The record is an 85-nucleotide RNA sequence from Fermentimonas caenicola, which matches "tRNA" in Rfam.
It scores 60 bits against the family's covariance model.
Pairs were carried over by alignment from the consensus structure, which is taken from published work.
Its family is annotated with triplet codon-amino acid adaptor activity in the Gene Ontology.
[Rfam]
RNA sequence: GCUCGGAUGGUGGAAUGGUAGACACGCAAGACUUAAAAUCUUGUGGCCAUUAUAGGCUGUGCGGGUUCAAGUCCCGCUCCGAGUA
Numbered sequence: 001g002c003u004c005g006g007a008u009g010g011u012g013g014a015a016u017g018g019u020a021g022a023c024a025c026g027c028a029a030g031a032c033u034u035a036a037a038a039u040c041u042u043g044u045g046g047c048c049a050u051u052a053u054a055g056g057c058u059g060u061g062c063g064g065g066u067u068c069a070a071g072u073c074c075c076g077c078u079c080c081g082a083g084u085a
Stems, first nucleotide, its partner, number of pairs: 001084007010025003027043005061077005

Rfam classes the family as a transfer RNA.